[Rfam]
RNA sequence: AUUGCUUCGAUUUGUAAGUCGCUUUGGAUAAAAGCGUCUGCUAAAUGACUAAAU
Numbered sequence: 001a002u003u004g005c006u007u008c009g010a011u012u013u014g015u016a017a018g019u020c021g022c023u024u025u026g027g028a029u030a031a032a033a034g035c036g037u038c039u040g041c042u043a044a045a046u047g048a049c050u051a052a053a054u
Stems, first nucleotide, its partner, number of pairs: 013043001014041003020036006

Shown here is a 54-nucleotide RNA from Sinocyclocheilus anshuiensis, a member of the family "UnaL2 LINE 3' element". Lineage of the source: Eukaryota > Bilateria > Deuterostomia > Cyprininae > Sinocyclocheilus. Pairs were carried over by alignment from the consensus structure, which is taken from published work. From the family's description: The eel long interspersed element (LINE) UnaL2 and its partner short interspersed element (SINE) share a conserved 3' tail containing a stem-loop that is critical for their retrotransposition. Rfam classes the family as a cis-regulatory element.